[Rfam]
RNA: Pseudomonas sRNA P9
Nucleotides: 079
Stems, first nucleotide, its partner, number of pairs: 011030003016027004056078009
Number, partner (000 for none) and nucleotide at each position: 001000c002000g003000a004000a005000u006000u007000a008000u009000u010000a011030u012029c013028a014000u015000u016027c017026c018025a019024u020000a021000g022000g023000a024019a025018u026017g027016g028013u029012g030011g031000g032000u033000u034000u035000g036000c037000u038000g039000a040000u041000g042000u043000g044000c045000u046000u047000a048000a049000a050000a051000u052000u053000u054000a055000g056078a057077a058076a059075c060074c061073c062072g063071c064070c065000c066000u067000u068000g069000a070064g071063g072062c073061g074060g075059g076058u077057u078056u079000u